The family of this 102-nucleotide RNA sequence from Lachnospiraceae bacterium G41 is "TPP riboswitch aptamer (THI element)".
A search with the family's covariance model found it, with a score of 68 bits.
Rfam describes the family as follows. Vitamin B(1) in its active form thiamin pyrophosphate (TPP) is an essential coenzyme that is synthesised by coupling of pyrimidine and thiazole moieties in bacteria.
Rfam 15.1 lists 16,130 matches to the family in 8,693 species.
[Rfam]
RNA sequence: UGUUUUUGCUAGGGGAGCUUUAGCUGAGAUGGAUAUUUUUAUAUCUAACCCUCAUUACUUGAACCGGGUAAUUCCGGCGUAAGGAAGCAGUUUUAAUGUCUC
Numbered sequence: 001u002g003u004u005u006u007u008g009c010u011a012g013g014g015g016a017g018c019u020u021u022a023g024c025u026g027a028g029a030u031g032g033a034u035a036u037u038u039u040u041a042u043a044u045c046u047a048a049c050c051c052u053c054a055u056u057a058c059u060u061g062a063a064c065c066g067g068g069u070a071a072u073u074c075c076g077g078c079g080u081a082a083g084g085a086a087g088c089a090g091u092u093u094u095a096a097u098g099u100c101u102c
Base pairs, nucleotide, nucleotide: 006090007089008088009087010086011052012051013050014049016046017024018023032045033044034043035042058083059082060081061080064077065076066075067074